[Rfam]
RNA sequence: UCCUGCAUUCGAAAGUGAUCACGGUCCCGCCCGUGGCCGGGUCAUUGAUAGUGCAGGAAGAGGAGUGCGAGAGUUUUCCCGUGUUUGGAGGGGUCUGUGUCCCCCCCCAAACCCUGUUGCUGUCGGACA
Numbered sequence: 001u002c003c004u005g006c007a008u009u010c011g012a013a014a015g016u017g018a019u020c021a022c023g024g025u026c027c028c029g030c031c032c033g034u035g036g037c038c039g040g041g042u043c044a045u046u047g048a049u050a051g052u053g054c055a056g057g058a059a060g061a062g063g064a065g066u067g068c069g070a071g072a073g074u075u076u077u078c079c080c081g082u083g084u085u086u087g088g089a090g091g092g093g094u095c096u097g098u099g100u101c102c103c104c105c106c107c108c109a110a111a112c113c114c115u116g117u118u119g120c121u122g123u124c125g126g127a128c129a
Stems, first nucleotide, its partner, number of pairs: 001058009014046007023038004066126001068125003072121003083112005088106001090104003

Rfam assigns this 129-nucleotide sequence from Dicrurus megarhynchus to the family "Small nucleolar RNA SNORA71". By type it is an H/ACA-box small nucleolar RNA.